[Rfam]
RNA: L31-Gammaproteobacteria ribosomal protein leader
Organism: Pseudohaemophilus minor
RNA sequence: CAUAUGGUACUUAUCAGCGGUUCAUCAUGAAACAAGAUAAGCAGCGAUAUGGCUUCUUAUGAGGU
Dot-bracket structure: (((((.((..(((((....................)))))...)).)))))..............